RNA: Small nucleolar RNA snoR60
RNA sequence: GAGUAUAUAAUGAGUUACUCGAGCUUCCCUUCAACAUGUUUUGGGUGAUGUGGGCUUGAGUUUCAGAUGCU
Numbered sequence: 001g002a003g004u005a006u007a008u009a010a011u012g013a014g015u016u017a018c019u020c021g022a023g024c025u026u027c028c029c030u031u032c033a034a035c036a037u038g039u040u041u042u043g044g045g046u047g048a049u050g051u052g053g054g055c056u057u058g059a060g061u062u063u064c065a066g067a068u069g070c071u
Stems, first nucleotide, its partner, number of pairs: 002071004